[Rfam]
RNA sequence: UAUUGAAGAUGAUGAAAGGAGUAAAAGGUGAUGGUUCAUCCCAUCUGAUCAAUUAUAAUCCUUUUUGCUGUGUUCUUUCUGAUUCAUGC
Numbered sequence: 001u002a003u004u005g006a007a008g009a010u011g012a013u014g015a016a017a018g019g020a021g022u023a024a025a026a027g028g029u030g031a032u033g034g035u036u037c038a039u040c041c042c043a044u045c046u047g048a049u050c051a052a053u054u055a056u057a058a059u060c061c062u063u064u065u066u067g068c069u070g071u072g073u074u075c076u077u078u079c080u081g082a083u084u085c086a087u088g089c
Stems, first nucleotide, its partner, number of pairs: 004086004

Overview
Small nucleolar RNA R32/R81/Z41: an 89-nucleotide sequence from Olea europaea. The family's consensus secondary structure was predicted with PFOLD. Rfam links the family to the GO terms nucleolus and RNA processing. Rfam classes the family as a C/D-box small nucleolar RNA.